The family of this 181-nucleotide sequence from Clostridium sp. MD294 is "glycine-GGAnGA riboswitch aptamer". Rfam's curators put it in the seed alignment.
[Rfam]
RNA sequence: CCGUAUGAUAACAGUCUGAAACAUUCUUUAUAUAAAGAAGACCGAAGCGGAAAGCUAAAGUACUAACAUCACUUUAGUGAAACUGACAGGUAAAGCAAAUGACUGUUUGACGGAACCUUGGAAAGACUAUCUUAGAGAUAGAGCCAAUGAGGCAAUAACCAACUGGCAAAAAGACAGGGAA
Numbered sequence: 001c002c003g004u005a006u007g008a009u010a011a012c013a014g015u016c017u018g019a020a021a022c023a024u025u026c027u028u029u030a031u032a033u034a035a036a037g038a039a040g041a042c043c044g045a046a047g048c049g050g051a052a053a054g055c056u057a058a059a060g061u062a063c064u065a066a067c068a069u070c071a072c073u074u075u076a077g078u079g080a081a082a083c084u085g086a087c088a089g090g091u092a093a094a095g096c097a098a099a100u101g102a103c104u105g106u107u108u109g110a111c112g113g114a115a116c117c118u119u120g121g122a123a124a125g126a127c128u129a130u131c132u133u134a135g136a137g138a139u140a141g142a143g144c145c146a147a148u149g150a151g152g153c154a155a156u157a158a159c160c161a162a163c164u165g166g167c168a169a170a171a172a173g174a175c176a177g178g179g180a181a
Base pairs, nucleotide, nucleotide: 001113002112003111010107011106012105013104014103015102016101022040024039025038026037027036028035029034041091042090043089047087048085049084050083054078055077056076057075058074059073060072061071116179117178118177119176120175127141128140129139130138143167144166145165149163151160152159

Rfam links the family to the GO term glycine biosynthetic process. About the family: glycine-GGAnGA riboswitch is a variant of glycine riboswitch that have in common a U69A change. This riboswitch is associate with genes that encode either saccharopine dehydrogenase or amino acid transporters and other genes with not predicted function. The family is grouped with related families in Rfam's "Glycine riboswitch clan".